[Rfam]
RNA: Guanidine-II riboswitch aptamer (mini-ykkC)
Organism: Dyella soli
RNA sequence: CGGCGGGGACGACCCUGCUGCGUUUCGUUUCCGCGGGGACGGCCCUG
Number, nucleotide and partner (000 for none) at each position: 001c020002g019003g018004c017005g016006g015007g014008g013009a000010c000011g000012a000013c008014c007015c006016u005017g004018c003019u002020g001021c000022g000023u000024u000025u000026c000027g000028u000029u000030u000031c000032c000033g000034c047035g046036g045037g044038g043039a000040c000041g000042g000043c038044c037045c036046u035047g034